[Rfam]
A member of the RNA family "permuted transfer-messenger RNA", 316 nucleotides long. Pairs were carried over by alignment from the consensus structure, which is taken from published work. Rfam classes the family as a non-coding RNA gene. Bacterial tmRNA, also known as 10Sa RNA or SsrA, is named for its dual tRNA and mRNA-like properties. Its role is to liberate the mRNA from a stalled ribosome. To accomplish this part of the tmRNA is used as a reading frame that ends in a translation stop signal. A search with the family's covariance model found it, with a score of 135 bits.
RNA sequence: UGUUGUAAUUCCUUUCUAGUAAAGGCGUAUUGGACGGGGGUUCGAAUCCCCCCACCUCCACCAAAAGGAUUUUUAUGAAAGCUUGGGUUGAAUAUUUCCCUCCAUUAAAUUUAUUUAAUUAUAAUUUAUUUUGGAAGUGGAACUAUGAAAUACUAAGCGAAGAGAAUCUUUCUGACGGGGGUGUAUUGGUUUCGACAGUGCGAGAUAGCAAAGAAGGCAACAGGGCAAUGUGAAAGCCCUUAGGAUUGGGGAUUUCCCGGUCGUAGAAACAAAAAGUGUAAAUGCAAACGACAAUGUUUGGGCUUUAGCAGCGUAA
Numbered sequence: 001u002g003u004u005g006u007a008a009u010u011c012c013u014u015u016c017u018a019g020u021a022a023a024g025g026c027g028u029a030u031u032g033g034a035c036g037g038g039g040g041u042u043c044g045a046a047u048c049c050c051c052c053c054a055c056c057u058c059c060a061c062c063a064a065a066a067g068g069a070u071u072u073u074u075a076u077g078a079a080a081g082c083u084u085g086g087g088u089u090g091a092a093u094a095u096u097u098c099c100c101u102c103c104a105u106u107a108a109a110u111u112u113a114u115u116u117a118a119u120u121a122u123a124a125u126u127u128a129u130u131u132u133g134g135a136a137g138u139g140g141a142a143c144u145a146u147g148a149a150a151u152a153c154u155a156a157g158c159g160a161a162g163a164g165a166a167u168c169u170u171u172c173u174g175a176c177g178g179g180g181g182u183g184u185a186u187u188g189g190u191u192u193c194g195a196c197a198g199u200g201c202g203a204g205a206u207a208g209c210a211a212a213g214a215a216g217g218c219a220a221c222a223g224g225g226c227a228a229u230g231u232g233a234a235a236g237c238c239c240u241u242a243g244g245a246u247u248g249g250g251g252a253u254u255u256c257c258c259g260g261u262c263g264u265a266g267a268a269a270c271a272a273a274a275a276g277u278g279u280a281a282a283u284g285c286a287a288a289c290g291a292c293a294a295u296g297u298u299u300g301g302g303c304u305u306u307a308g309c310a311g312c313g314u315a316a
Stems, first nucleotide, its partner, number of pairs: 001222005014212002026202003030198003036052005053183007223239004